SAM riboswitch aptamer (S box leader): a 100-nucleotide sequence from Flavobacterium pallidum. Rfam describes the family as follows. The SAM riboswitch is found upstream of a number of genes which code for proteins involved in methionine or cysteine biosynthesis in Gram-positive bacteria.
RNA sequence: UUCUUAUCCAGAAAGACCGAGGGAAUUGACCCUAUGACGUCUUGGCAACCUGUCGAAAGAUAAGGUGCCACAUUCAACCCUGAAAAGGGAUAGAUAAGCC
Number, nucleotide and partner (000 for none) at each position: 001u000002u000003c098004u097005u096006a095007u094008c093009c000010a000011g000012a000013a043014a042015g041016a040017c039018c000019g000020a000021g032022g031023g030024a000025a000026u077027u076028g075029a074030c023031c022032c021033u000034a000035u000036g000037a000038c000039g017040u016041c015042u014043u013044g069045g068046c067047a066048a000049c065050c064051u062052g061053u060054c059055g000056a000057a000058a000059g054060a053061u052062a051063a000064g050065g049066u047067g046068c045069c044070a000071c000072a000073u092074u029075c028076a027077a026078c089079c088080c087081u086082g000083a000084a000085a000086a081087g080088g079089g078090a000091u000092a073093g008094a007095u006096a005097a004098g003099c000100c000